[Rfam]
RNA: Small Cajal body specific RNA 11
RNA sequence: GCGUCCUGACCUCAACCCUGAGUCCCCCUCACCGGAACUGUGGUGGUGGGGUCUGGAGGUGGACGCAGAUCAACUUGCUCUCAUGUUAGGAGGGCUGCCAAAAAUGUGUGCAAACCCUUAAAGGCAAGAGAGGACAAU
Numbered sequence: 001g002c003g004u005c006c007u008g009a010c011c012u013c014a015a016c017c018c019u020g021a022g023u024c025c026c027c028c029u030c031a032c033c034g035g036a037a038c039u040g041u042g043g044u045g046g047u048g049g050g051g052u053c054u055g056g057a058g059g060u061g062g063a064c065g066c067a068g069a070u071c072a073a074c075u076u077g078c079u080c081u082c083a084u085g086u087u088a089g090g091a092g093g094g095c096u097g098c099c100a101a102a103a104a105u106g107u108g109u110g111c112a113a114a115c116c117c118u119u120a121a122a123g124g125c126a127a128g129a130g131a132g133g134a135c136a137a138u
Base pairs, nucleotide, nucleotide: 002065003064004063005062006061010056011055025051026050027048029046030045031044032043078132079131080130081129082128086123087122090119091118092117093116094115096113097111098110100109102107